[Rfam]
RNA sequence: CAGCACUUGAUACUGAGUUAUCUGUGCCCUAGCCUUGUGUCAGAGGCUCGUGGUGUGGUGAUAGCUGGGUCGAAGAAGUGCAAUAUUUUUUAAAAAGCCAUGAAUAUUUUAAGUGCAGUGUGUGAAGACAUACUCUGAGUUAUAUCUCAGUGGCACAACU
Numbered sequence: 001c002a003g004c005a006c007u008u009g010a011u012a013c014u015g016a017g018u019u020a021u022c023u024g025u026g027c028c029c030u031a032g033c034c035u036u037g038u039g040u041c042a043g044a045g046g047c048u049c050g051u052g053g054u055g056u057g058g059u060g061a062u063a064g065c066u067g068g069g070u071c072g073a074a075g076a077a078g079u080g081c082a083a084u085a086u087u088u089u090u091u092a093a094a095a096a097g098c099c100a101u102g103a104a105u106a107u108u109u110u111a112a113g114u115g116c117a118g119u120g121u122g123u124g125a126a127g128a129c130a131u132a133c134u135c136u137g138a139g140u141u142a143u144a145u146c147u148c149a150g151u152g153g154c155a156c157a158a159c160u
Stems, first nucleotide, its partner, number of pairs: 003081006012070003016066007023057006029050001031048006097154003118133006135150005
Small Cajal body specific RNA 1: a 160-nucleotide sequence from Cnephaeus nilssonii. Rfam 15.1 lists 715 matches to the family in 617 species. Its family is annotated with RNA processing, Cajal body and nucleolus in the Gene Ontology. Lineage of the source: Eukaryota > Sarcopterygii > Amniota > Theria > Cnephaeus. A reference for the family is Darzacq et al. (2002), "Cajal body-specific small nuclear RNAs: a novel class of 2'-O-methylation and pseudouridylation guide RNAs", EMBO J. The match comes from Rfam's covariance-model search (129 bits).